[Rfam]
RNA sequence: AAGUUGAAUGUGAGAAUUGGAGAAAAUCGAACCUUUUUUGUGCGCGUUACUUCUCUUUUCUGCAUCAGGUUCAAUUUUCUCCAAUAUCUCAUGUUCAGCUU
Numbered sequence: 001a002a003g004u005u006g007a008a009u010g011u012g013a014g015a016a017u018u019g020g021a022g023a024a025a026a027u028c029g030a031a032c033c034u035u036u037u038u039u040g041u042g043c044g045c046g047u048u049a050c051u052u053c054u055c056u057u058u059u060c061u062g063c064a065u066c067a068g069g070u071u072c073a074a075u076u077u078u079c080u081c082c083a084a085u086a087u088c089u090c091a092u093g094u095u096c097a098g099c100u101u
Stems, first nucleotide, its partner, number of pairs: 004098005011091004016085006023078005029072002032069002

Source information: MIR2275 microRNA precursor family: a 101-nucleotide RNA sequence from Aquilegia coerulea. NCBI's taxonomy places the organism under Eukaryota, Streptophyta, Streptophytina, Magnoliopsida, Aquilegia. Its family is annotated with RISC complex and miRNA-mediated post-transcriptional gene silencing in the Gene Ontology.